The record is a 70-nucleotide sequence from Acanthosepion pharaonis, which matches "mir-71 microRNA precursor family" in Rfam.
Its family is annotated with miRNA-mediated post-transcriptional gene silencing and RISC complex in the Gene Ontology.
Rfam 15.1 lists 372 matches to the family in 291 species.
RNA sequence: UCGGCUUGAAAGACACGGGUAGUGAGAUGCUGUGCUCUAGACUUCUUACUACCCUGUCUUUCGAGUGGCU
Numbered sequence: 001u002c003g004g005c006u007u008g009a010a011a012g013a014c015a016c017g018g019g020u021a022g023u024g025a026g027a028u029g030c031u032g033u034g035c036u037c038u039a040g041a042c043u044u045c046u047u048a049c050u051a052c053c054c055u056g057u058c059u060u061u062c063g064a065g066u067g068g069c070u
Base pairs, nucleotide, nucleotide: 008062009061010060011059012058013057014056015055017054018053019052021050022049023048024047025046026045027044029042